[Rfam]
Shown here is a 126-nucleotide sequence from Balaenoptera musculus, a member of the family "U4atac minor spliceosomal RNA". Its family is annotated with mRNA 5'-splice site recognition, pre-mRNA 5'-splice site binding and spliceosomal tri-snRNP complex assembly in the Gene Ontology. The literature on the family includes a 2002 paper in Nucleic Acids Res by Shukla et al., "Domains of human U4atac snRNA required for U12-dependent splicing in vivo". The family has 61 seed sequences and 1,648 matches in Rfam 15.1. Taxonomically the source falls in Balaenoptera (Eukaryota, Sarcopterygii, Dipnotetrapodomorpha, Amniota). The family is grouped with related families in Rfam's "U4 clan". From the family's description: U4atac is an essential component of the minor U12-type spliceosome complex which is required for removal of the rarer class of eukaryotic introns (AT-AC, U12-type).
RNA sequence: ACCAUCCUUUUCUUGGGGUUGCGUUACUGUCCGAUGAGCGUGUAGCGAGGGCAGUACUGCUAACGCCUAUGCAACACACUCGCACCAAGUAGAGUUCUGCUUUACCUCGGUGCAAUUUUUGGAAAA
Numbered sequence: 001a002c003c004a005u006c007c008u009u010u011u012c013u014u015g016g017g018g019u020u021g022c023g024u025u026a027c028u029g030u031c032c033g034a035u036g037a038g039c040g041u042g043u044a045g046c047g048a049g050g051g052c053a054g055u056a057c058u059g060c061u062a063a064c065g066c067c068u069a070u071g072c073a074a075c076a077c078a079c080u081c082g083c084a085c086c087a088a089g090u091a092g093a094g095u096u097c098u099g100c101u102u103u104a105c106c107u108c109g110g111u112g113c114a115a116u117u118u119u120u121g122g123a124a125a126a
Base pairs, nucleotide, nucleotide: 006018007017008016009015021060022059023058026055027054028053029052030051031050032049038046039045082113083112084111085110086109090104091103092102093101094100095099